The family of this 138-nucleotide RNA sequence from Brassica rapa is "Small nucleolar RNA U19". The family has 3 seed sequences and 421 matches in Rfam 15.1. Lineage of the source: Eukaryota > Viridiplantae > Spermatophyta > Magnoliopsida > Brassica. A search with the family's covariance model found it, with a score of 45 bits.
RNA sequence: AGUUGGCUUAGUUAGGAGGCUUGAUGAUCUUUCAAUAUGUUUCUGUAUUGUUUUGAUCUUGAGAUCUUUUUGAGGAGGAACUCUGUUUUUCUUUUUUUGUUGCUCAAAUCAGAGCUUCUCAAUCAGCUUCAGACAUUA
Dot-bracket structure: ....(.(((......))).)............(((((((....)))))))........(((((.(....(((.(((((..((............................))..))))))))...).)))))......